[Rfam]
RNA: Photosynthesis regulatory RNA1
RNA sequence: CACGGGUUCUAGGGGUUUCGGUACCUUCCAUUGACAUUGAGUUCUCCUAGAUAUGCCCUCGGUGAUGCCGGGGUAUUU
Numbered sequence: 001c002a003c004g005g006g007u008u009c010u011a012g013g014g015g016u017u018u019c020g021g022u023a024c025c026u027u028c029c030a031u032u033g034a035c036a037u038u039g040a041g042u043u044c045u046c047c048u049a050g051a052u053a054u055g056c057c058c059u060c061g062g063u064g065a066u067g068c069c070g071g072g073g074u075a076u077u078u
Stems, first nucleotide, its partner, number of pairs: 053074001057073007